Rfam assigns this 305-nucleotide RNA from Raphanus sativus to the family "Plant signal recognition particle RNA". It is annotated as a non-coding RNA gene. It scores 230 bits against the family's covariance model.

RNA sequence: GUCGAGCUAAGUAACAAGAGCUUGUGACCCAUGUGGGGACAACAAGAUGGUGGGACACUGACUCUGUUCCACGAGCUGGUUCUGGUGUGGCAUGUUUCUGAGCUGCCCAGUCCAAGCUGAGAGUUAUAUGUCUGGUUUGAGCGAAGGCUUGAAUUAGGGGUGUGCUAAAGGUGGAGGGUAAUGCGUAAGGCUGGUUUCACAGAGCAGCGACCACCUCCCACUCUCAGCAGUGGACGGAUAACGGCUCGGCGCGGCCCAGAACCAAUAUGGCCUGCUGGUUCGUUGUGAGCUAGACCACCAUUUUU
Numbered sequence: 001g002u003c004g005a006g007c008u009a010a011g012u013a014a015c016a017a018g019a020g021c022u023u024g025u026g027a028c029c030c031a032u033g034u035g036g037g038g039a040c041a042a043c044a045a046g047a048u049g050g051u052g053g054g055a056c057a058c059u060g061a062c063u064c065u066g067u068u069c070c071a072c073g074a075g076c077u078g079g080u081u082c083u084g085g086u087g088u089g090g091c092a093u094g095u096u097u098c099u100g101a102g103c104u105g106c107c108c109a110g111u112c113c114a115a116g117c118u119g120a121g122a123g124u125u126a127u128a129u130g131u132c133u134g135g136u137u138u139g140a141g142c143g144a145a146g147g148c149u150u151g152a153a154u155u156a157g158g159g160g161u162g163u164g165c166u167a168a169a170g171g172u173g174g175a176g177g178g179u180a181a182u183g184c185g186u187a188a189g190g191c192u193g194g195u196u197u198c199a200c201a202g203a204g205c206a207g208c209g210a211c212c213a214c215c216u217c218c219c220a221c222u223c224u225c226a227g228c229a230g231u232g233g234a235c236g237g238a239u240a241a242c243g244g245c246u247c248g249g250c251g252c253g254g255c256c257c258a259g260a261a262c263c264a265a266u267a268u269g270g271c272c273u274g275c276u277g278g279u280u281c282g283u284u285g286u287g288a289g290c291u292a293g294a295c296c297a298c299c300a301u302u303u304u305u
Stems, first nucleotide, its partner, number of pairs: 001040003004023005028037003044304010057291001058289002061284001063282001066279001068278002072274002075271003078263008087255002090252001098249008107237002110235005116228009125164005131158012165170001173218005184209003191202003
The source organism's lineage runs through Eukaryota, Gunneridae, Pentapetalae, rosids and Raphanus. For this family Rfam cites "Towards the structure of the mammalian signal recognition particle" (Wild et al., Curr Opin Struct Biol, 2002).